[Rfam]
Notes
Shown here is a 211-nucleotide RNA sequence from Schizosaccharomyces japonicus, a member of the family "small nucleolar RNA snR42". Gene Ontology terms of the family: nucleolus and RNA processing. Its Rfam clan is "SNORA27 clan". Rfam classes the family as an H/ACA-box small nucleolar RNA.

RNA sequence: AUCUCACAAAAAAUAAAGUCGCCAUGGUGUCGUUCCAACAGUUGAGUUUGUAGGACAAAUUUGGUCCUGCAGUUCGUGCUGAUAUGGUCGACUUCCUCUUGUGAGGAGUGGCGCAGAUCAAGCUGGGUUGACCAGCGUCAUAGCUUAAAACCAUCGUGAAGUCGUUGCUUUUGCAGAAUGGCUCGUGAUGACCGAAUGCUUCGUACAUUUU
Numbered sequence: 001a002u003c004u005c006a007c008a009a010a011a012a013a014u015a016a017a018g019u020c021g022c023c024a025u026g027g028u029g030u031c032g033u034u035c036c037a038a039c040a041g042u043u044g045a046g047u048u049u050g051u052a053g054g055a056c057a058a059a060u061u062u063g064g065u066c067c068u069g070c071a072g073u074u075c076g077u078g079c080u081g082a083u084a085u086g087g088u089c090g091a092c093u094u095c096c097u098c099u100u101g102u103g104a105g106g107a108g109u110g111g112c113g114c115a116g117a118u119c120a121a122g123c124u125g126g127g128u129u130g131a132c133c134a135g136c137g138u139c140a141u142a143g144c145u146u147a148a149a150a151c152c153a154u155c156g157u158g159a160a161g162u163c164g165u166u167g168c169u170u171u172u173g174c175a176g177a178a179u180g181g182c183u184c185g186u187g188a189u190g191a192c193c194g195a196a197u198g199c200u201u202c203g204u205a206c207a208u209u210u211u
Base pairs, nucleotide, nucleotide: 027114028113029112030111031110041089043087045085048082049081054074055073056072139203142200143199144198152190153189154188155187156186157185158184159183161182162181163180164179165178